Source information
This 67-nucleotide RNA sequence from Clostridium sp. cel8 belongs to the Rfam family "RAGATH-18 RNA". It is annotated as a small RNA. Actinobacteria, Firmicutes, Fusobacteria, Thermotogae (1 example).
RNA sequence: CCCCUGGAGUGUGGGACCAAUUAAAAGUAACAUUAAAAAUGUGAAAUUAUGCACUAUGAAUGGGGAA
Numbered sequence: 001c002c003c004c005u006g007g008a009g010u011g012u013g014g015g016a017c018c019a020a021u022u023a024a025a026a027g028u029a030a031c032a033u034u035a036a037a038a039a040u041g042u043g044a045a046a047u048u049a050u051g052c053a054c055u056a057u058g059a060a061u062g063g064g065g066a067a
Stems, first nucleotide, its partner, number of pairs: 001065004009054005022049003030042003